[Rfam]
RNA: ASdes TB sRNA
RNA sequence: AGCUCGUCCGGGUCGACUGCCCGGGACGCGAGCAGGUAGUCGCGCAUGACGAUGCCGUGGCGGCCCUC
Numbered sequence: 001a002g003c004u005c006g007u008c009c010g011g012g013u014c015g016a017c018u019g020c021c022c023g024g025g026a027c028g029c030g031a032g033c034a035g036g037u038a039g040u041c042g043c044g045c046a047u048g049a050c051g052a053u054g055c056c057g058u059g060g061c062g063g064c065c066c067u068c
Base pairs, nucleotide, nucleotide: 004063005062006061008059012029013028015027017025018024035056036055037054038053040052041051042050
Dot-bracket structure: ...(((.(...((.(.((.....)).))).....((((.(((.......)))))))..).))).....